[Rfam]
RNA sequence: GUGCUAGCCUAGUCUCGUGGUUACUUCGCUGAAAUGGUUUCAAUAAUGUCUGUUAAACAUUACUUUGUGGGUUCAAAUCCCACUGUCACCACUGACGCCAUCUGGCACUUUU
Numbered sequence: 001g002u003g004c005u006a007g008c009c010u011a012g013u014c015u016c017g018u019g020g021u022u023a024c025u026u027c028g029c030u031g032a033a034a035u036g037g038u039u040u041c042a043a044u045a046a047u048g049u050c051u052g053u054u055a056a057a058c059a060u061u062a063c064u065u066u067g068u069g070g071g072u073u074c075a076a077a078u079c080c081c082a083c084u085g086u087c088a089c090c091a092c093u094g095a096c097g098c099c100a101u102c103u104g105g106c107a108c109u110u111u112u
Stems, first nucleotide, its partner, number of pairs: 002107006012096003017092004025077002028074001
Vault RNA: a 112-nucleotide RNA sequence from Lingula anatina.
The family's RNA type in Rfam is non-coding RNA gene.
From the family's description: This family of RNAs are found as part of the enigmatic vault ribonucleoprotein complex. The complex consists of a major vault protein (MVP), two minor vault proteins (VPARP and TEP1), and several small untranslated RNA molecules.
Lineage of the source: Eukaryota > Metazoa > Lingulata > Lingulida > Lingula.
The match comes from Rfam's covariance-model search (44 bits).
The base pairs follow the family's consensus structure, which is taken from published work.